[Rfam]
A member of the RNA family "Group II catalytic intron D1-D4-4" from Alkalicoccus urumqiensis, 140 nucleotides long. A reference for the family is Bonen and Vogel (2001), "The ins and outs of group II introns", Trends Genet. Its family is annotated with Group II intron splicing in the Gene Ontology. NCBI's taxonomy places the organism under Bacteria, Bacilli, Caryophanales, Bacillaceae, Alkalicoccus. Rfam describes the family as follows. Group II introns are found in rRNA, tRNA and mRNA of organelles in fungi, plants and protists, and also in mRNA in bacteria. The match comes from Rfam's covariance-model search (107 bits).
RNA sequence: UAGCUGGUGAAAGUCCAGUCUGAGUAAGUGCCAGGACGCUCAGUAGCUGACAGGCAGCUGGUGGAGAAAUCCUAAGGUUGGAGCCCUGUGACAAAGUUACUCCUUGCGGAGUGCGAGCAACUUAACAGGUCGUAACUUCA
Dot-bracket structure: ...................(((((..............)))))......((((((((((....((....))....)))))....)))))......(.(((((......))))))..((.............)).......